[Rfam]
RNA: Pseudomonas sRNA P1
RNA sequence: ACCCUCGUAUUAUUGUGUUUUGGGUUGAGACCGAGCUUAGCCUUGUUCAUUUUUUUACACAACACCUCCGUAAAAAAUAAAACACGGCAUGUCGGAGAUAGCCCUAUGACAGGGAAAUAGCGGAUAAUGGCACGCCCCGAUAUGCAGCAAAUCUGCCGUCGAUGUGCCAUUUCAGGGCAU
Numbered sequence: 001a002c003c004c005u006c007g008u009a010u011u012a013u014u015g016u017g018u019u020u021u022g023g024g025u026u027g028a029g030a031c032c033g034a035g036c037u038u039a040g041c042c043u044u045g046u047u048c049a050u051u052u053u054u055u056u057a058c059a060c061a062a063c064a065c066c067u068c069c070g071u072a073a074a075a076a077a078u079a080a081a082a083c084a085c086g087g088c089a090u091g092u093c094g095g096a097g098a099u100a101g102c103c104c105u106a107u108g109a110c111a112g113g114g115a116a117a118u119a120g121c122g123g124a125u126a127a128u129g130g131c132a133c134g135c136c137c138c139g140a141u142a143u144g145c146a147g148c149a150a151a152u153c154u155g156c157c158g159u160c161g162a163u164g165u166g167c168c169a170u171u172u173c174a175g176g177g178c179a180u
Base pairs, nucleotide, nucleotide: 022104023103024102025101026100027099033092035090040088041087042086043084045083046082047081051077052076053075054074055073056072057071058070162180163179164178165177167175